[Rfam]
RNA: Small nucleolar RNA SNORA25
Organism: Zosterops hypoxanthus
RNA sequence: AGGUCACUUCAAAGAGGGUUUGCGUGGCUGAAAAACCAGCAGCUCUUAACGCGGUGACCGCAUAUUGAAAUCCUCUGCAGGAUGCCGUGGCCAUGCCAUGUGUGCCAUGGUCUAUUUGUGAGGAGAUAGU
Numbered sequence: 001a002g003g004u005c006a007c008u009u010c011a012a013a014g015a016g017g018g019u020u021u022g023c024g025u026g027g028c029u030g031a032a033a034a035a036c037c038a039g040c041a042g043c044u045c046u047u048a049a050c051g052c053g054g055u056g057a058c059c060g061c062a063u064a065u066u067g068a069a070a071u072c073c074u075c076u077g078c079a080g081g082a083u084g085c086c087g088u089g090g091c092c093a094u095g096c097c098a099u100g101u102g103u104g105c106c107a108u109g110g111u112c113u114a115u116u117u118g119u120g121a122g123g124a125g126a127u128a129g130u
Stems, first nucleotide, its partner, number of pairs: 002059006014047007023039001026037002072123004079116002082113001087108004092104004